[Rfam]
RNA sequence: CGGUUUUCACCUUGAUCUGAGAGCUAUCUGAAUGCUAUCUGAGAUCAUCGUGAAAGCUAGU
Numbered sequence: 001c002g003g004u005u006u007u008c009a010c011c012u013u014g015a016u017c018u019g020a021g022a023g024c025u026a027u028c029u030g031a032a033u034g035c036u037a038u039c040u041g042a043g044a045u046c047a048u049c050g051u052g053a054a055a056g057c058u059a060g061u
Stems, first nucleotide, its partner, number of pairs: 002058009013047006020040003023035002

mir-81 microRNA precursor family: a 61-nucleotide RNA sequence from Caenorhabditis brenneri. Taxonomically the source falls in Caenorhabditis (Eukaryota, Metazoa, Eumetazoa, Rhabditida). Its family is annotated with RISC complex and miRNA-mediated post-transcriptional gene silencing in the Gene Ontology.